[Rfam]
RNA sequence: CUGCCUUAAACUAAUGAGUAAGGAAAACAAAGCGAGCGGUGGGAGCCGCUCGCCGCGCUUCUAAGUAAUCAUGCGCAAUAAUUUGUGGAGGGGUAAUAGGCUGGCCGAGCGCUGACGCUGCUUACUUUGCAGAACUCGCUCGUGCGGGCCUCCC
Dot-bracket structure: ...(((((..........)))))........((((((((......)))))))).((((..............))))..............(((....(((((.(.((.(((......((((.......))))....))).))..).))))))))
RNA: U12 minor spliceosomal RNA
Organism: Ricinus communis